[Rfam]
RNA sequence: CCUUGACAGCGUAAGCUGACAAUAGCCAAGACAAGGAGAAUAACAUG
Number, nucleotide and partner (000 for none) at each position: 001c000002c035003u034004u033005g032006a000007c018008a017009g016010c015011g000012u000013a000014a000015g010016c009017u008018g007019a000020c000021a000022a000023u000024a000025g000026c000027c000028a000029a000030g000031a000032c005033a004034a003035g002036g000037a000038g000039a000040a000041u000042a000043a000044c000045a000046u000047g000
This 47-nucleotide RNA sequence belongs to the Rfam family "Mu-gpT-DE RNA". Rfam's curators put it in the seed alignment. Rfam classes the family as a small RNA. Pairs were carried over by alignment from the consensus structure, which is taken from published work.